[Rfam]
Nucleotides: 448
Stems, first nucleotide, its partner, number of pairs: 001444010011433001012389007020048009053431003057428005062249004069301002072298001074245005079094005095121001097118003122240002127238002129234003144179002146175003151170003187205005206229001207227004212223004253323002256320001263314003268309001292306003296302001330372001332370005
Number, partner (000 for none) and nucleotide at each position: 001444g002443c003442c004441a005440c006439g007438c008437c009436c010435c011433g012389g013388g014387c015386g016385g017384u018383c019000g020048c021047g022046c023045g024044g025043u026042g027041g028040a029000g030000a031000c032000u033000u034000c035000g036000g037000u038000c039000g040028u041027c042026c043025g044024c045023c046022g047021u048020g049000a050000g051000g052000a053431a054430a055429g056000u057428c058427c059426g060425g061424a062249c063248u064247c065246c066000g067000c068000a069301a070300g071000g072298u073000a074245g075244c076243g077242u078241g079094c080093c081092u082091u083090g084000u085000g086000a087000a088000a089000g090083c091082a092081a093080g094079g095121g096000a097118g098117c099116g100000c101000c102000g103000g104000c105000c106000u107000c108000a109000a110000a111000a112000c113000c114000g115000a116099c117098g118097c119000g120000a121095c122240g123239g124000a125000a126000a127238g128237u129234g130233c131232c132000g133000c134000a135000g136000a137000a138000a139000a140000u141000a142000u143000a144179c145178c146175g147174c148173c149000g150000a151170u152169g153168g154000a155000u156000g157000g158000g159000c160000c161000c162000a163000g164000c165000c166000c167000g168153u169152c170151a171000c172000a173148g174147g175146u176000a177000a178145g179144g180000u181000u182000g183000a184000a185000a186000u187205g188204g189203u190202g191201g192000a193000g194000u195000a196000a197000g198000a199000g200000c201191c202190c203189a204188c205187c206229g207227c208226c209225c210224g211000u212223c213222c214221g215220g216000g217000u218000a219000a220215c221214c222213g223212g224210c225209g226208g227207g228000g229206c230000a231000c232131g233130g234129u235000a236000a237128a238127c239123c240122c241078c242077a243076c244075g245074c246065g247064g248063a249062g250000c251000a252000a253323g254322a255000c256320a257000u258000a259000a260000c261000a262000g263314a264313g265312g266000a267000a268309a269000c270000g271000g272000g273000u274000c275000a276000c277000c278000u279000g280000c281000c282000c283000g284000g285000a286000c287000c288000g289000c290000a291000a292306c293305g294304c295000u296302u297000c298072g299000g300070c301069u302296g303000c304294g305293c306292g307000g308000a309268u310000g311000c312265u313264c314263u315000c316000g317000g318000g319000u320256u321000c322254u323253c324000g325000u326000c327000g328000c329000a330372c331000c332370c333369a334368g335367c336366c337000c338000u339000u340000c341000a342000c343000a344000c345000g346000g347000u348000u349000g350000g351000g352000a353000u354000c355000a356000c357000c358000g359000c360000c361000c362000c363000u364000g365000c366336g367335g368334c369333u370332g371000u372330g373000a374000u375000a376000g377000a378000u379000a380000a381000a382000u383018g384017g385016u386015c387014g388013c389012c390000c391000a392000u393000c394000g395000c396000g397000g398000u399000c400000g401000g402000u403000u404000c405000g406000c407000c408000g409000c410000c411000c412000g413000c414000g415000u416000g417000g418000a419000c420000a421000a422000a423000a424061u425060c426059c427058g428057g429055c430054u431053u432000a433011c434000a435010g436009g437008g438007g439006c440005g441004u442003g443002g444001c445000a446000c447000c448000u